[Rfam]
RNA sequence: GAUGAAUCAAUUGUUUGCCAAGUCCAGCAGUGACCGCUGCGGGGUGAGGGCAACGAAAAGAGGAGUCU
Numbered sequence: 001g002a003u004g005a006a007u008c009a010a011u012u013g014u015u016u017g018c019c020a021a022g023u024c025c026a027g028c029a030g031u032g033a034c035c036g037c038u039g040c041g042g043g044g045u046g047a048g049g050g051c052a053a054c055g056a057a058a059a060g061a062g063g064a065g066u067c068u
Stems, first nucleotide, its partner, number of pairs: 011056003015053005023044003027040005
RNA: ilvH RNA